[Rfam]
RNA sequence: GGGAGUGUCGUAUAGUGGCUAUUACCCCAGCCUUCCAAGCUGGUGACGCGGGUUCGAUUCCCGUCACUCCCU
Number, nucleotide and partner (000 for none) at each position: 001g071002g070003g069004a068005g067006u066007g065008u000009c000010g025011u024012a023013u000014a000015g000016u000017g000018g000019c000020u000021a000022u000023u012024a011025c010026c000027c043028c042029a041030g040031c039032c000033u000034u000035c000036c000037a000038a000039g031040c030041u029042g028043g027044u000045g000046a000047c000048g064049c063050g062051g061052g060053u000054u000055c000056g000057a000058u000059u000060c052061c051062c050063g049064u048065c007066a006067c005068u004069c003070c002071c001072u000